drum RNA: a 115-nucleotide sequence. It is one of the family's seed sequences. The family's consensus secondary structure is taken from published work. Firmicutes, Bacteroidetes (1 example), Proteobacteria (2 examples), Spirochaetes (2 examples).
[Rfam]
RNA sequence: GGGCGAUGAAGCCGGCGCCGUUCCAGGUUGCGGUGCGUCUGGUGGAGCCCUGCGGGGGUUGCGUGGAAACCACUACUUGGAUAGGUUGUUUUACAACUGAAAGAAAACACGCAGG
Number, nucleotide and partner (000 for none) at each position: 001g050002g049003g048004c047005g000006a000007u000008g000009a000010a000011g043012c042013c041014g040015g039016c000017g000018c033019c032020g031021u030022u000023c080024c079025a078026g077027g000028u000029u000030g021031c020032g019033g018034u000035g000036c000037g000038u000039c015040u014041g013042g012043u011044g000045g000046a000047g004048c003049c002050c001051u000052g000053c000054g000055g000056g000057g000058g000059u000060u000061g000062c000063g110064u109065g108066g000067a000068a000069a000070c000071c000072a000073c000074u000075a000076c000077u026078u025079g024080g023081a000082u000083a000084g098085g097086u096087u095088g000089u000090u000091u000092u000093a000094c000095a087096a086097c085098u084099g000100a000101a000102a000103g000104a000105a000106a000107a000108c065109a064110c063111g000112c000113a000114g000115g000